[Rfam]
RNA: Small nucleolar RNA SNORA11
Organism: Carlito syrichta
RNA sequence: GGGGUGUGCUCAGAGCAGGCGGUCUGAAGAAUGGCUCCUCUGUUUACAACAUACCCAAGAAGAAUCUGGGAUCAUUGUGACGAGAGGCACAACAUGUGUGACUUCUCAAUGAACAAAUGCUCUACACAU
Dot-bracket structure: .(((((((....(((((((.((((........))).).)))))))....)))))))............((.(...(((..((.(((.((((.....)))).))).....)).)))...).)).......